[Rfam]
The record is a 178-nucleotide sequence from Phtheirospermum japonicum, which matches "MIR394 microRNA precursor family" in Rfam. The family has 19 seed sequences and 724 matches in Rfam 15.1. The organism belongs to Phtheirospermum, within Eukaryota. For this family Rfam cites "Computational identification of plant microRNAs and their targets, including a stress-induced miRNA" (Jones-Rhoades and Bartel, Mol Cell, 2004). It scores 73 bits against the family's covariance model. Gene Ontology terms of the family: RISC complex and miRNA-mediated post-transcriptional gene silencing.
RNA sequence: CUUACAGAGUUUAUUUGGCAUUCUGUCCACCUCCUUGUCUUUAUUUUUUUUUAAUUAUAAAAAACACAACCUUUUUUGUUCCAAAAAUUAUUAUUAUUAUUAUUAUUUUAACAAAAUUAAACAGGUGGGUUUUUGUUAUUUAGAGGAGGUGGGCAUACUGCCAACUGAGCGCUGUUUG
Numbered sequence: 001c002u003u004a005c006a007g008a009g010u011u012u013a014u015u016u017g018g019c020a021u022u023c024u025g026u027c028c029a030c031c032u033c034c035u036u037g038u039c040u041u042u043a044u045u046u047u048u049u050u051u052u053a054a055u056u057a058u059a060a061a062a063a064a065c066a067c068a069a070c071c072u073u074u075u076u077u078g079u080u081c082c083a084a085a086a087a088u089u090a091u092u093a094u095u096a097u098u099a100u101u102a103u104u105a106u107u108u109u110a111a112c113a114a115a116a117u118u119a120a121a122c123a124g125g126u127g128g129g130u131u132u133u134u135g136u137u138a139u140u141u142a143g144a145g146g147a148g149g150u151g152g153g154c155a156u157a158c159u160g161c162c163a164a165c166u167g168a169g170c171g172c173u174g175u176u177u178g
Stems, first nucleotide, its partner, number of pairs: 011168001015164006024155013